[Rfam]
RNA sequence: CUCUGGAGAGUGUUUGCAUUUUGUAUGCAAACCACCCAAGAAGCAAGCGUCAGGUUUUCCUGACGUCAAUCUUUCUGGUGAAACGGACAGAG
Numbered sequence: 001c002u003c004u005g006g007a008g009a010g011u012g013u014u015u016g017c018a019u020u021u022u023g024u025a026u027g028c029a030a031a032c033c034a035c036c037c038a039a040g041a042a043g044c045a046a047g048c049g050u051c052a053g054g055u056u057u058u059c060c061u062g063a064c065g066u067c068a069a070u071c072u073u074u075c076u077g078g079u080g081a082a083a084c085g086g087a088c089a090g091a092g
Base pairs, nucleotide, nucleotide: 001092002091003090004089005088012032013031014030015029016028017027018026019025034079035078036077038074041073042072043071047066048065049064050063051062052061053060054059
Dot-bracket structure: (((((......((((((((.....)))))))).(((.(..(((...((((((((....))))))))....))))..)))........)))))